[Rfam]
RNA sequence: GUUUAGCCCCGAUUGAAGUGGAAAUCCUGUCAUUGCACAACAAAAAUUUCAAAAUGACAUUGCUUCGUUCCUCGCAAUGACAGAUUGAAACGAAAAGCGGGAAUUACU
Numbered sequence: 001g002u003u004u005a006g007c008c009c010c011g012a013u014u015g016a017a018g019u020g021g022a023a024a025u026c027c028u029g030u031c032a033u034u035g036c037a038c039a040a041c042a043a044a045a046a047u048u049u050c051a052a053a054a055u056g057a058c059a060u061u062g063c064u065u066c067g068u069u070c071c072u073c074g075c076a077a078u079g080a081c082a083g084a085u086u087g088a089a090a091c092g093a094a095a096a097g098c099g100g101g102a103a104u105u106a107c108u
Stems, first nucleotide, its partner, number of pairs: 009100003013096002018091002023086004029081008
RNA: Flavo-1 RNA